[Rfam]
RNA: Small nucleolar RNA U3
RNA sequence: AAAACUAUACUUUCAGGGAUCAUUUCUGUAGUUUGUUACUAGAGAAGCUUCUCUGAAUGUGUAGAGCACCCAUAAACCACGAGGAGGAGGUGUUGUGUUCUCUCCUGAGCGUGAAGCUGGUUCUUGGUGUUGCUUAGUGUGACUGCCAUUUGCCAUUGAUGAUCGUUCUUCUCUUCUUUUGGGAGAGUAAGAGGGAGAGGACACUAUCUGAGUGGU
Numbered sequence: 001a002a003a004a005c006u007a008u009a010c011u012u013u014c015a016g017g018g019a020u021c022a023u024u025u026c027u028g029u030a031g032u033u034u035g036u037u038a039c040u041a042g043a044g045a046a047g048c049u050u051c052u053c054u055g056a057a058u059g060u061g062u063a064g065a066g067c068a069c070c071c072a073u074a075a076a077c078c079a080c081g082a083g084g085a086g087g088a089g090g091u092g093u094u095g096u097g098u099u100c101u102c103u104c105c106u107g108a109g110c111g112u113g114a115a116g117c118u119g120g121u122u123c124u125u126g127g128u129g130u131u132g133c134u135u136a137g138u139g140u141g142a143c144u145g146c147c148a149u150u151u152g153c154c155a156u157u158g159a160u161g162a163u164c165g166u167u168c169u170u171c172u173c174u175u176c177u178u179u180u181g182g183g184a185g186a187g188u189a190a191g192a193g194g195g196a197g198a199g200g201a202c203a204c205u206a207u208c209u210g211a212g213u214g215g216u
Stems, first nucleotide, its partner, number of pairs: 002040001006035002009032003014028005049065002054061001076216005095204012109166003119154003125148004129143005169190002171187007
Dot-bracket structure: .(...((.(((..(((((.....))))).))).))....)........((...(......)..))..........(((((..............((((((((((((..(((.......(((...(((((((((.....))))).))))...))).........)))..(((((((((...))))))).))..)))))))))))).......)))))